[Rfam]
RNA sequence: AAAACUGUGCAAAUUCAAUAUAUUGCAGGAAACACGUAGGCCU
Numbered sequence: 001a002a003a004a005c006u007g008u009g010c011a012a013a014u015u016c017a018a019u020a021u022a023u024u025g026c027a028g029g030a031a032a033c034a035c036g037u038a039g040g041c042c043u
Stems, first nucleotide, its partner, number of pairs: 006029001008027005
Description: The record is a 43-nucleotide sequence from Shigella sonnei, which matches "ES036 (CssrF) sRNA" in Rfam. For this family Rfam cites "Differential expression of small RNAs under chemical stress and fed-batch fermentation in E. coli" (Rau et al., BMC Genomics, 2015).